[Rfam]
RNA sequence: GCGGGUAUAGCACAAUGGUAGUGCAGCAGCCUUCCAAGCUGAAUAUGCGGGUUCGAUUCCCGCUACCCGCU
Numbered sequence: 001g002c003g004g005g006u007a008u009a010g011c012a013c014a015a016u017g018g019u020a021g022u023g024c025a026g027c028a029g030c031c032u033u034c035c036a037a038g039c040u041g042a043a044u045a046u047g048c049g050g051g052u053u054c055g056a057u058u059c060c061c062g063c064u065a066c067c068c069g070c071u
Stems, first nucleotide, its partner, number of pairs: 001070007010024004027041004047063005